[Rfam]
RNA sequence: GAAGUAAACCAGGUAAUCGCCGGCGGACAUCCGCAAGGAUCCGCGGGAGGAAAGUCCGAGCUCCACAGGGCAGGGUGCCGGUUAACAGCCGGUGGAGGCGACUCCAAGGAAAGUGCCACAGAAACAAACCGCUUGAGUAUUCACGCCAACGUGGAGACUCGAUCGUUAGCCGGAUGAGUUUCCGACAACCGAAUGCUUGUGAAUACUCAAGUAAGGGUGCAACGGUGCGGUAAGAGCGCACCAGCAGCAUGGAGACAUGCUGGCUAGGUAAACCCCACCUGGAGCAAGACCUAGUAGGGAAUCAGCGACUUCUCGAGUCGCAGCUGUGGCCCGCAGCGAUUCCGGGUAGGUCGCUUGAGCUUUGCAGCAAUGCAAAAGCCUAGAUAGAUGAUUACCACUCCACUUGCGGGAGCACGAAGGAAGUGCACGAGUACCGCUGGAGAACAGAACUCGGCUUACGGUUUACUUCCCGU
Numbered sequence: 001g002a003a004g005u006a007a008a009c010c011a012g013g014u015a016a017u018c019g020c021c022g023g024c025g026g027a028c029a030u031c032c033g034c035a036a037g038g039a040u041c042c043g044c045g046g047g048a049g050g051a052a053a054g055u056c057c058g059a060g061c062u063c064c065a066c067a068g069g070g071c072a073g074g075g076u077g078c079c080g081g082u083u084a085a086c087a088g089c090c091g092g093u094g095g096a097g098g099c100g101a102c103u104c105c106a107a108g109g110a111a112a113g114u115g116c117c118a119c120a121g122a123a124a125c126a127a128a129c130c131g132c133u134u135g136a137g138u139a140u141u142c143a144c145g146c147c148a149a150c151g152u153g154g155a156g157a158c159u160c161g162a163u164c165g166u167u168a169g170c171c172g173g174a175u176g177a178g179u180u181u182c183c184g185a186c187a188a189c190c191g192a193a194u195g196c197u198u199g200u201g202a203a204u205a206c207u208c209a210a211g212u213a214a215g216g217g218u219g220c221a222a223c224g225g226u227g228c229g230g231u232a233a234g235a236g237c238g239c240a241c242c243a244g245c246a247g248c249a250u251g252g253a254g255a256c257a258u259g260c261u262g263g264c265u266a267g268g269u270a271a272a273c274c275c276c277a278c279c280u281g282g283a284g285c286a287a288g289a290c291c292u293a294g295u296a297g298g299g300a301a302u303c304a305g306c307g308a309c310u311u312c313u314c315g316a317g318u319c320g321c322a323g324c325u326g327u328g329g330c331c332c333g334c335a336g337c338g339a340u341u342c343c344g345g346g347u348a349g350g351u352c353g354c355u356u357g358a359g360c361u362u363u364g365c366a367g368c369a370a371u372g373c374a375a376a377a378g379c380c381u382a383g384a385u386a387g388a389u390g391a392u393u394a395c396c397a398c399u400c401c402a403c404u405u406g407c408g409g410g411a412g413c414a415c416g417a418a419g420g421a422a423g424u425g426c427a428c429g430a431g432u433a434c435c436g437c438u439g440g441a442g443a444a445c446a447g448a449a450c451u452c453g454g455c456u457u458a459c460g461g462u463u464u465a466c467u468u469c470c471c472g473u
Stems, first nucleotide, its partner, number of pairs: 001469010012396007020047002023044005052457003056454005061284004068332004073280005078092005093107001094105004108275002113273002115269003129216002131212015224242006244264001245262007288352004298343006323337005359379005364373003